About this RNA: The record is a 46-nucleotide sequence from Strongylocentrotus purpuratus, which matches "Histone 3' UTR stem-loop" in Rfam.
RNA sequence: CCAACAGUCCUUUUCAGGACUACACACACACUCAAGAAAGAAAAAU
Dot-bracket structure: .....((((((....)))))).........................